Plastid-ndhJ 3UTR RNA: a 57-nucleotide sequence.
It is one of the family's seed sequences.
Pairs were carried over by alignment from the consensus structure, which was predicted with LocARNA.
It is annotated as a cis-regulatory element.
About the family: Plastid ndhJ is a non-coding RNA (ncRNA) present in plastids. It was identified as a short stem-loop motif in the 3 prime untranslate region (3UTR) of ndhJ gene.

RNA sequence: UUAUGAACUAUGUACCGCGCACAUCACUUAGAUGGGCUAUAGAAAAUAGGAGGAAAU
Numbered sequence: 001u002u003a004u005g006a007a008c009u010a011u012g013u014a015c016c017g018c019g020c021a022c023a024u025c026a027c028u029u030a031g032a033u034g035g036g037c038u039a040u041a042g043a044a045a046a047u048a049g050g051a052g053g054a055a056a057u
Stems, first nucleotide, its partner, number of pairs: 019037002022034004